The family of this 106-nucleotide RNA from Aliiroseovarius sediminilitoris is "TPP riboswitch aptamer (THI element)". Pairs were carried over by alignment from the consensus structure, which is taken from published work. The match comes from Rfam's covariance-model search (71 bits). From the family's description: Vitamin B(1) in its active form thiamin pyrophosphate (TPP) is an essential coenzyme that is synthesised by coupling of pyrimidine and thiazole moieties in bacteria. Lineage of the source: Bacteria > Pseudomonadota > Alphaproteobacteria > Rhodobacterales > Aliiroseovarius.
[Rfam]
RNA sequence: GGCGACACCUCGGGGGGCCGGACUGAACCGGCUGAGAUGCAAAUCAUGCGGACCCGUUGAACCUGAACCGGCUAGAACCGGCGGAGGGAAGGUAAUUUGGACACCC
Numbered sequence: 001g002g003c004g005a006c007a008c009c010u011c012g013g014g015g016g017g018c019c020g021g022a023c024u025g026a027a028c029c030g031g032c033u034g035a036g037a038u039g040c041a042a043a044u045c046a047u048g049c050g051g052a053c054c055c056g057u058u059g060a061a062c063c064u065g066a067a068c069c070g071g072c073u074a075g076a077a078c079c080g081g082c083g084g085a086g087g088g089a090a091g092g093u094a095a096u097u098u099g100g101a102c103a104c105c106c
Base pairs, nucleotide, nucleotide: 007093008092009091010090011056012055013054014053017032018031019030020029021028039049040048041047062087063086064085068081069080070079071078